Record summary
A member of the RNA family "FMN riboswitch aptamer (RFN element)" from Corynebacterium matruchotii, 157 nucleotides long. The organism belongs to Corynebacterium matruchotii, within Bacteria. The base pairs follow the family's consensus structure, which is taken from published work.
RNA sequence: AUACGUUCUCAGGGCGGGGUGAAAGUCCCCACCGGCGGUGAUCCCCCUUUUGGGGGCGAGCCCGCGAGCGCUUCUUGGGGUUUUCUCCAAGAAGGUCAAGCUGAUUGUGGUGUGAUCCCACAGCCGACAGUGACAGUCUGGAUGGAAGAGAAUGGGC
Numbered sequence: 001a002u003a004c005g006u007u008c009u010c011a012g013g014g015c016g017g018g019g020u021g022a023a024a025g026u027c028c029c030c031a032c033c034g035g036c037g038g039u040g041a042u043c044c045c046c047c048u049u050u051u052g053g054g055g056g057c058g059a060g061c062c063c064g065c066g067a068g069c070g071c072u073u074c075u076u077g078g079g080g081u082u083u084u085c086u087c088c089a090a091g092a093a094g095g096u097c098a099a100g101c102u103g104a105u106u107g108u109g110g111u112g113u114g115a116u117c118c119c120a121c122a123g124c125c126g127a128c129a130g131u132g133a134c135a136g137u138c139u140g141g142a143u144g145g146a147a148g149a150g151a152a153u154g155g156g157c
Stems, first nucleotide, its partner, number of pairs: 004154007017029003031137002033126002035065004060124002068101002106122005128140003